[Rfam]
RNA sequence: GCCAUAGUAAGGUGGAAUCUGAGGGAAGUUAGAAGCAAACACCUACACUGACGAACAAAUAUUUCAUAAGAAAGGCCGGACUGGAGUGGAUAAGCUUGCUUAACAAAGUGGAGUCCAAUACUGUACAAGAUCCGUCAGGUAAAUGAAAUAGUGACAUCGGUGAUCAGUUUUUGAA
Numbered sequence: 001g002c003c004a005u006a007g008u009a010a011g012g013u014g015g016a017a018u019c020u021g022a023g024g025g026a027a028g029u030u031a032g033a034a035g036c037a038a039a040c041a042c043c044u045a046c047a048c049u050g051a052c053g054a055a056c057a058a059a060u061a062u063u064u065c066a067u068a069a070g071a072a073a074g075g076c077c078g079g080a081c082u083g084g085a086g087u088g089g090a091u092a093a094g095c096u097u098g099c100u101u102a103a104c105a106a107a108g109u110g111g112a113g114u115c116c117a118a119u120a121c122u123g124u125a126c127a128a129g130a131u132c133c134g135u136c137a138g139g140u141a142a143a144u145g146a147a148a149u150a151g152u153g154a155c156a157u158c159g160g161u162g163a164u165c166a167g168u169u170u171u172u173g174a175a
Stems, first nucleotide, its partner, number of pairs: 002015004029174004035168002040162004045157001046153005062148006075140003079136003083133003088116004094109004